[Rfam]
RNA: mir-203 microRNA precursor family
RNA sequence: CCCUCUUUGGUCAAGUGGUUCUAAACAGUUCAACAGUUCUUUACCAAAAUUGUGAAAUGUUUAGGACCACUUGGUCAGAU
Numbered sequence: 001c002c003c004u005c006u007u008u009g010g011u012c013a014a015g016u017g018g019u020u021c022u023a024a025a026c027a028g029u030u031c032a033a034c035a036g037u038u039c040u041u042u043a044c045c046a047a048a049a050u051u052g053u054g055a056a057a058u059g060u061u062u063a064g065g066a067c068c069a070c071u072u073g074g075u076c077a078g079a080u
Stems, first nucleotide, its partner, number of pairs: 014071006021064002024061004029056004
Dot-bracket structure: .............((((((.((.((((.((((....................)))).)))).)).)))))).........